[Rfam]
RNA: SAM (S-adenosyl methionine) riboswitch aptamer
RNA sequence: CUUCACGAGAUGCGGCGCCAAGCUCCGACUGGCCGCGCACCAACCCCAGGUUCAUGGGUGGUUCGGAUGAAGAAGCGGUCCGUGCGCCGACCGGCUGCGGGCAAGAGCUCUCU
Numbered sequence: 001c002u003u004c005a006c007g008a009g010a011u012g013c014g015g016c017g018c019c020a021a022g023c024u025c026c027g028a029c030u031g032g033c034c035g036c037g038c039a040c041c042a043a044c045c046c047c048a049g050g051u052u053c054a055u056g057g058g059u060g061g062u063u064c065g066g067a068u069g070a071a072g073a074a075g076c077g078g079u080c081c082g083u084g085c086g087c088c089g090a091c092c093g094g095c096u097g098c099g100g101g102c103a104a105g106a107g108c109u110c111u112c113u
Stems, first nucleotide, its partner, number of pairs: 001075004009038001011037006021030002039062003044058003078102007086095003